[Rfam]
RNA sequence: AUGCAGGUACUGAUACAGUAUAACUGAAGUGUUUUAUUGUCCUUCCCCCGGCUUGAAGCAUUUGAUACAUAACUAUCUCUGUCUGACUCCAUUCCACAGUAAGACAGAGAGGCUUGGUCUCAAACAU
Numbered sequence: 001a002u003g004c005a006g007g008u009a010c011u012g013a014u015a016c017a018g019u020a021u022a023a024c025u026g027a028a029g030u031g032u033u034u035u036a037u038u039g040u041c042c043u044u045c046c047c048c049c050g051g052c053u054u055g056a057a058g059c060a061u062u063u064g065a066u067a068c069a070u071a072a073c074u075a076u077c078u079c080u081g082u083c084u085g086a087c088u089c090c091a092u093u094c095c096a097c098a099g100u101a102a103g104a105c106a107g108a109g110a111g112g113c114u115u116g117g118u119c120u121c122a123a124a125c126a127u
Stems, first nucleotide, its partner, number of pairs: 003052002006049002015040006022033003078108004083103002085100001
RNA: Small nucleolar RNA SNORA63